[Rfam]
RNA sequence: UAGUUUUGUCAUAAGUCAAACUAUCUCAAGUUUGACCAAGUUUAUAAGGAAGGACAUCAACUUUUAUGAUACAAAAAUAUAUUUCAUAGCAAAUCUAGUGAUACUUAUUUGGUAUCAUAAGUCCUUGUACAAUUUUAUAUAAACUUGGUCAAACUUAAGAUUGUUUGACUUAGGACAAAACUAUA
Numbered sequence: 001u002a003g004u005u006u007u008g009u010c011a012u013a014a015g016u017c018a019a020a021c022u023a024u025c026u027c028a029a030g031u032u033u034g035a036c037c038a039a040g041u042u043u044a045u046a047a048g049g050a051a052g053g054a055c056a057u058c059a060a061c062u063u064u065u066a067u068g069a070u071a072c073a074a075a076a077a078u079a080u081a082u083u084u085c086a087u088a089g090c091a092a093a094u095c096u097a098g099u100g101a102u103a104c105u106u107a108u109u110u111g112g113u114a115u116c117a118u119a120a121g122u123c124c125u126u127g128u129a130c131a132a133u134u135u136u137a138u139a140u141a142a143a144c145u146u147g148g149u150c151a152a153a154c155u156u157a158a159g160a161u162u163g164u165u166u167g168a169c170u171u172a173g174g175a176c177a178a179a180a181c182u183a184u185a
Base pairs, nucleotide, nucleotide: 005179006178007177008176009175012172013171014170015169016168017167018166019165020164021163023161024160025159026158031153032152033151034150035149043139044138045137046136047135048134049133056128057127059125063121064120065119066118067117068116072111073110074109075108
Shown here is a 185-nucleotide RNA sequence from Setaria italica, a member of the family "MIR1435 microRNA precursor family". Lineage of the source: Eukaryota > Tracheophyta > Liliopsida > Panicoideae > Setaria. It scores 96 bits against the family's covariance model. Pairs were carried over by alignment from the consensus structure, which was predicted with RNAalifold.